[Rfam]
RNA sequence: GGGGACGCUCUUAGAAUCCCCAUGCCUUGUUGUGUUAAUAGCGGCAUUUUGGCCGAUGUCGCGGUUAGUGAAUC
Number, nucleotide and partner (000 for none) at each position: 001g021002g020003g019004g018005a017006c000007g000008c000009u000010c000011u000012u000013a000014g000015a000016a000017u005018c004019c003020c002021c001022a000023u000024g000025c000026c000027u000028u000029g000030u000031u000032g000033u000034g000035u068036u067037a066038a065039u064040a000041g062042c061043g060044g059045c058046a057047u056048u055049u000050u000051g000052g000053c000054c000055g048056a047057u046058g045059u044060c043061g042062c041063g000064g039065u038066u037067a036068g035069u000070g000071a000072a000073u000074c000

L13-Bacteroidia ribosomal protein leader: a 74-nucleotide sequence from Prevotella sp. CAG:1320.
The organism belongs to Prevotella, within Bacteria.